Source information: The family of this 89-nucleotide RNA from Rhipicephalus microplus is "mir-5316 microRNA precursor family". NCBI's taxonomy places the organism under Eukaryota, Ecdysozoa, Arachnida, Rhipicephalinae, Boophilus. Pairs were carried over by alignment from the consensus structure, which was predicted with RNAalifold.
RNA sequence: GUACCACAUGCAGACUUGCGUAAAUGUUGUGGUUCGCAUUGAAUGGAUAGUUUGCAAACGGGGCCUUUUCGACUAGCUUUCCGUGGUUU
Numbered sequence: 001g002u003a004c005c006a007c008a009u010g011c012a013g014a015c016u017u018g019c020g021u022a023a024a025u026g027u028u029g030u031g032g033u034u035c036g037c038a039u040u041g042a043a044u045g046g047a048u049a050g051u052u053u054g055c056a057a058a059c060g061g062g063g064c065c066u067u068u069u070c071g072a073c074u075a076g077c078u079u080u081c082c083g084u085g086g087u088u089u
Stems, first nucleotide, its partner, number of pairs: 003087005012079002015076002018073001019071002022068003026064003030060002033057001036055003